This 92-nucleotide sequence from Salisediminibacterium halotolerans belongs to the Rfam family "pan motif". Lineage of the source: Bacteria > Bacillati > Bacilli > Caryophanales > Salisediminibacterium.
[Rfam]
RNA sequence: CGGGCCGUAUCGAUUCGAACGGCACCGCUCAAACGAUUGCAAGCAAAAAACUUAUGGUCUGCUUUGAUCCUUUCCGGGACAGGGACAGAAGG
Numbered sequence: 001c002g003g004g005c006c007g008u009a010u011c012g013a014u015u016c017g018a019a020c021g022g023c024a025c026c027g028c029u030c031a032a033a034c035g036a037u038u039g040c041a042a043g044c045a046a047a048a049a050a051c052u053u054a055u056g057g058u059c060u061g062c063u064u065u066g067a068u069c070c071u072u073u074c075c076g077g078g079a080c081a082g083g084g085a086c087a088g089a090a091g092g
Stems, first nucleotide, its partner, number of pairs: 001027003004023005010018002059088003062084005068079003
By type it is a cis-regulatory element.